[Rfam]
RNA sequence: CCGGGGGGCCGGGCAGCCGCGGGUGCCUUUCGGGGUGCACGAGGAAAGUCCGGGCUCCACGAAACAAGGGUGGCGGGUAACGCCCGCCGGGCGGUGUUCGCAUCGUCAAGGGAAAGUGCCACAGAGAGUAUACCGCCGAUGGAGGGCGACCUCACAGGCAAGGGUGAAAGGGUGCGGUAAAAGCGCACCGGGGCGCUGGCAACAGGGUCCGCAUGGCAAACCCCACCCGGAGCAAGGCCGAAUAGGGACGGCGCGCUUUGCCGCAAGGUAGGGCAGGGGUGUUUCGCCCCGUGAUCGUCCGGGUUGGCUGCUUGACCGCACAUGGCAACAUGUCGGCAAGAGGAAUGGCUGCCGACGGGGAUACGGUGCCGCAUGGCAUACCGUCCGCGUUACAGAACCCGGCUUACAGGCCCCCCGGUGUA
Numbered sequence: 001c002c003g004g005g006g007g008g009c010c011g012g013g014c015a016g017c018c019g020c021g022g023g024u025g026c027c028u029u030u031c032g033g034g035g036u037g038c039a040c041g042a043g044g045a046a047a048g049u050c051c052g053g054g055c056u057c058c059a060c061g062a063a064a065c066a067a068g069g070g071u072g073g074c075g076g077g078u079a080a081c082g083c084c085c086g087c088c089g090g091g092c093g094g095u096g097u098u099c100g101c102a103u104c105g106u107c108a109a110g111g112g113a114a115a116g117u118g119c120c121a122c123a124g125a126g127a128g129u130a131u132a133c134c135g136c137c138g139a140u141g142g143a144g145g146g147c148g149a150c151c152u153c154a155c156a157g158g159c160a161a162g163g164g165u166g167a168a169a170g171g172g173u174g175c176g177g178u179a180a181a182a183g184c185g186c187a188c189c190g191g192g193g194c195g196c197u198g199g200c201a202a203c204a205g206g207g208u209c210c211g212c213a214u215g216g217c218a219a220a221c222c223c224c225a226c227c228c229g230g231a232g233c234a235a236g237g238c239c240g241a242a243u244a245g246g247g248a249c250g251g252c253g254c255g256c257u258u259u260g261c262c263g264c265a266a267g268g269u270a271g272g273g274c275a276g277g278g279g280u281g282u283u284u285c286g287c288c289c290c291g292u293g294a295u296c297g298u299c300c301g302g303g304u305u306g307g308c309u310g311c312u313u314g315a316c317c318g319c320a321c322a323u324g325g326c327a328a329c330a331u332g333u334c335g336g337c338a339a340g341a342g343g344a345a346u347g348g349c350u351g352c353c354g355a356c357g358g359g360g361a362u363a364c365g366g367u368g369c370c371g372c373a374u375g376g377c378a379u380a381c382c383g384u385c386c387g388c389g390u391u392a393c394a395g396a397a398c399c400c401g402g403c404u405u406a407c408a409g410g411c412c413c414c415c416c417g418g419u420g421u422a
Stems, first nucleotide, its partner, number of pairs: 001418010011407001012353007020041002023038006046405003050402005055232004064284001066282001068228005073087005088110001090107007111223002116221002118217003133163002135159003140156002142153004171189006190212001191210004196205003236309004246300006276290005316336003320333005